This 310-nucleotide RNA from Nannospalax galili belongs to the Rfam family "Mason-Pfizer monkey virus packaging signal". Lineage of the source: Eukaryota > Opisthokonta > Tetrapoda > Eutheria > Nannospalax. The literature on the family includes a 2004 paper in Virus Res by Mustafa et al., "Mutational analysis of the predicted secondary RNA structure of the Mason-Pfizer monkey virus packaging signal". By type it is a cis-regulatory element. Rfam 15.1 lists 2,921 matches to the family in 53 species. The base pairs follow the family's consensus structure, which was predicted with PFOLD.
[Rfam]
RNA sequence: UGGCGCCACAACGUGGGGCUUGGAUACUGAGGCAGCAGUGAGGGAGAGGGCUUGGAUACUGAGGCAGCAGUGAGGGAGACUACGUGAAAAGGAACUCGUUUGACAAAUUUUGAGACACAUAGGAGCUGCCAUGGGAACCUGCCUUGGCUGAAACCGAAAGUAAGUGGAAACGUCGGAUCAUGGGGCAAGAAUUGAGUCAGCAUGAGCUUUAUGUUAAGCAGUUAAAGGAUGCUUUAAAGACACGGGGAGUAAAGGUUAAGACUACGGAUUUGUUUCAUUUUUUUUGAUUUUGUUAAAGAAAUUUGUCCCU
Number, nucleotide and partner (000 for none) at each position: 001u000002g000003g000004c000005g000006c032007c031008a000009c000010a000011a000012c000013g027014u026015g025016g000017g000018g000019c000020u000021u000022g000023g000024a000025u015026a014027c013028u000029g000030a000031g007032g006033c000034a000035g000036c000037a081038g080039u079040g000041a000042g000043g000044g000045a000046g000047a000048g000049g000050g000051c000052u000053u000054g000055g000056a000057u000058a000059c000060u000061g000062a000063g000064g000065c000066a000067g000068c000069a000070g000071u000072g000073a000074g000075g000076g000077a000078g000079a039080c038081u037082a000083c000084g000085u000086g000087a000088a000089a000090a000091g000092g000093a000094a000095c000096u000097c000098g000099u000100u000101u000102g000103a000104c000105a000106a000107a000108u000109u000110u000111u000112g000113a000114g000115a000116c000117a161118c160119a000120u157121a000122g000123g000124a000125g000126c150127u000128g000129c000130c146131a145132u000133g143134g142135g000136a000137a000138c000139c000140u000141g000142c134143c133144u000145u131146g130147g000148c000149u000150g126151a000152a000153a000154c000155c000156g000157a120158a000159a000160g118161u117162a000163a000164g000165u000166g000167g000168a000169a000170a000171c185172g000173u184174c183175g000176g181177a000178u000179c000180a000181u176182g000183g174184g173185g171186c000187a000188a000189g000190a000191a000192u000193u236194g235195a234196g232197u231198c000199a000200g000201c000202a000203u000204g000205a000206g000207c000208u000209u000210u000211a000212u000213g000214u000215u000216a000217a000218g000219c000220a000221g000222u000223u000224a000225a000226a000227g000228g000229a000230u000231g197232c196233u000234u195235u194236a193237a000238a000239g000240a000241c000242a000243c286244g285245g284246g283247g282248a281249g280250u000251a000252a000253a271254g270255g269256u268257u267258a000259a000260g000261a000262c000263u000264a000265c000266g000267g257268a256269u255270u254271u253272g000273u000274u000275u000276c000277a000278u000279u000280u249281u248282u247283u246284u245285u244286g243287a000288u000289u000290u000291u000292g000293u000294u000295a310296a000297a000298g307299a306300a000301a000302u000303u000304u000305g000306u299307c298308c000309c000310u295